[Rfam]
RNA sequence: AGAGGCCCUCCGAUGGCGGUUUACCGAAACAGCUAUCAAACUACCUUACGCUGCAUAUCUGGGAAACCAAUAUGUGGUGAGCGGUAAGGAAAAACGGGGACAAUGAUCCCCGUAGGU
Numbered sequence: 001a002g003a004g005g006c007c008c009u010c011c012g013a014u015g016g017c018g019g020u021u022u023a024c025c026g027a028a029a030c031a032g033c034u035a036u037c038a039a040a041c042u043a044c045c046u047u048a049c050g051c052u053g054c055a056u057a058u059c060u061g062g063g064a065a066a067c068c069a070a071u072a073u074g075u076g077g078u079g080a081g082c083g084g085u086a087a088g089g090a091a092a093a094a095c096g097g098g099g100a101c102a103a104u105g106a107u108c109c110c111c112g113u114a115g116g117u
Base pairs, nucleotide, nucleotide: 012037013036014035015034016033017032019030020029021028022027042116044089045088046087047086048085049084050078051077053075054074055073057071058070060069061068094113095112096111097110098109099108
RNA: Group II catalytic intron D1-D4-2